[Rfam]
RNA sequence: AAAAUCGUGCAAAUUCAAUAUAUUGCAAGAAGAUCGUAGGCCU
Numbered sequence: 001a002a003a004a005u006c007g008u009g010c011a012a013a014u015u016c017a018a019u020a021u022a023u024u025g026c027a028a029g030a031a032g033a034u035c036g037u038a039g040g041c042c043u
Stems, first nucleotide, its partner, number of pairs: 005030002008027005
Shown here is a 43-nucleotide sequence from Escherichia coli, a member of the family "ES036 (CssrF) sRNA". From the family's description: Differentially expressed under several chemical stress conditions. Also identified in Shigella as CssrF.